[Rfam]
This 110-nucleotide RNA sequence from Halobacillus halophilus belongs to the Rfam family "SAM riboswitch aptamer (S box leader)". The organism belongs to Halobacillus halophilus, within Bacteria. A search with the family's covariance model found it, with a score of 88 bits. Its family is annotated with regulation of gene expression in the Gene Ontology.
RNA sequence: CUCUUAUCCAGAGAGGCGGAGGGACUGGCCCUUUGAUGCCCGGCAACCGGCAAGCUAAGACUUGGCAAGGUGCCAAUUCCUGCAAGGGGUAAUCCUUGUGAAGAUGAGAG
Dot-bracket structure: ((((((((....(.(((...(((.[.[[)))......))))((((.(((.((..........)).)..))))))...(]].]((((((....))))))...)))))))))